This 79-nucleotide RNA from Jaculus jaculus belongs to the Rfam family "mir-3473 microRNA precursor family". Rfam links the family to the GO terms cellular response to mechanical stimulus, miRNA-mediated post-transcriptional gene silencing and RISC complex. NCBI's taxonomy places the organism under Eukaryota, Metazoa, Chordata, Vertebrata, Jaculus. A search with the family's covariance model found it, with a score of 73 bits.

RNA sequence: ACUGCUAAGCCAUCUCUCCAGCCCUAAUUAAUUAUAUUUUUAAAAAAUUAAUUUUUGGCUGGAGAGAUGGCUUAGCAGU
Numbered sequence: 001a002c003u004g005c006u007a008a009g010c011c012a013u014c015u016c017u018c019c020a021g022c023c024c025u026a027a028u029u030a031a032u033u034a035u036a037u038u039u040u041u042a043a044a045a046a047a048u049u050a051a052u053u054u055u056u057g058g059c060u061g062g063a064g065a066g067a068u069g070g071c072u073u074a075g076c077a078g079u
Base pairs, nucleotide, nucleotide: 002078003077004076005075006074007073008072009071010070011069012068013067014066015065016064017063018062019061020060021059022058023057